[Rfam]
RNA sequence: GAUUGCAUUCAACCACCUCUCUGCAAUCGCGGCUG
Numbered sequence: 001g002a003u004u005g006c007a008u009u010c011a012a013c014c015a016c017c018u019c020u021c022u023g024c025a026a027u028c029g030c031g032g033c034u035g
Base pairs, nucleotide, nucleotide: 001028002027003026004025005024006023007022
RNA: S4-Bacteroidia ribosomal protein leader